[Rfam]
RNA: small nucleolar RNA snoR134
RNA sequence: CUGCACGAUGUCUCCCGGGCUUCUCUGAUUAACCUAUGACGCGAAAGCCCCAAUACACGUGCGAAAUCGCCGCCGUUCGUGUUGCAGUUUAGCCCUAAUUUUUUCAUGGCUGAAACUGUGUCAAAGCAACGGUGAAAUCC
Dot-bracket structure: ..(((((..((.....(((((((.(...............).)).)))))....)).))))).........((((((..((.((((((..(((...............)))...)))))).))....)))))).......